[Rfam]
RNA sequence: GGCUGGUGCAUUGUAGUUGCAUUGCACGCCUCUGACGGUGCAAUGCUCCUGCAGUGCAACAAUC
Numbered sequence: 001g002g003c004u005g006g007u008g009c010a011u012u013g014u015a016g017u018u019g020c021a022u023u024g025c026a027c028g029c030c031u032c033u034g035a036c037g038g039u040g041c042a043a044u045g046c047u048c049c050u051g052c053a054g055u056g057c058a059a060c061a062a063u064c
Base pairs, nucleotide, nucleotide: 001064002063004061006060007058008057009056010055011054012053013052014051015050016049019046021044022043023042024041025040026039027038

mir-33 microRNA precursor family: a 64-nucleotide sequence from Amphibalanus amphitrite.
The match comes from Rfam's covariance-model search (62 bits).
Gene Ontology terms of the family: RISC complex and gene silencing by miRNA.
On this family, see Li et al., BMC Genomics 2009: "Direct sequencing and expression analysis of a large number of miRNAs in Aedes aegypti and a multi-species survey of novel mosquito miRNAs".
The family's consensus secondary structure was predicted with PFOLD.